About this RNA:
The record is a 53-nucleotide RNA sequence from Leptolyngbyaceae cyanobacterium T60_A2020_046, which matches "Nitrogen stress-induced RNA 1" in Rfam. Rfam 15.1 lists 962 matches to the family in 163 species. NCBI's taxonomy places the organism under Bacteria, Bacillati, Cyanobacteriota, Leptolyngbyales, Leptolyngbyaceae. A reference for the family is Ionescu et al. (2010), "Heterocyst-specific transcription of NsiR1, a non-coding RNA encoded in a tandem array of direct repeats in cyanobacteria", J Mol Biol. A search with the family's covariance model found it, with a score of 57 bits.
Nucleotides: 053
Stems, first nucleotide, its partner, number of pairs: 002013003025045009
Number, partner (000 for none) and nucleotide at each position: 001000u002013g003012g004011u005000a006000g007000a008000u009000g010000c011004a012003c013002c014000c015000u016000g017000a018000u019000u020000u021000c022000u023000c024000g025045c026044c027043c028042c029041u030040g031039g032038c033037c034000u035000u036000u037033g038032g039031c040030c041029g042028g043027g044026g045025g046000c047000u048000u049000u050000u051000u052000g053000u